[Rfam]
This 132-nucleotide RNA from Ruminiclostridium herbifermentans belongs to the Rfam family "c-di-AMP riboswitch aptamer (ydaO/yuaA leader)".
The source organism's lineage runs through Bacteria, Bacillati, Bacillota, Oscillospiraceae and Ruminiclostridium.
RNA sequence: GCAUAAAAAUAGCUGAAUCCCGUUAUACGGGUACGGAGGAACCAAAAUAUUUGGGGUGAAUCUAUGAAAAUAGUAGGGCGAUCCUAUUGCCCGAGCCCGACAGCUAACUUCGGAAGCGUUAUUAUAGGAGGA
Numbered sequence: 001g002c003a004u005a006a007a008a009a010u011a012g013c014u015g016a017a018u019c020c021c022g023u024u025a026u027a028c029g030g031g032u033a034c035g036g037a038g039g040a041a042c043c044a045a046a047a048u049a050u051u052u053g054g055g056g057u058g059a060a061u062c063u064a065u066g067a068a069a070a071u072a073g074u075a076g077g078g079c080g081a082u083c084c085u086a087u088u089g090c091c092c093g094a095g096c097c098c099g100a101c102a103g104c105u106a107a108c109u110u111c112g113g114a115a116g117c118g119u120u121a122u123u124a125u126a127g128g129a130g131g132a
Stems, first nucleotide, its partner, number of pairs: 012117003019031002034112005043053002054098003062073004076092004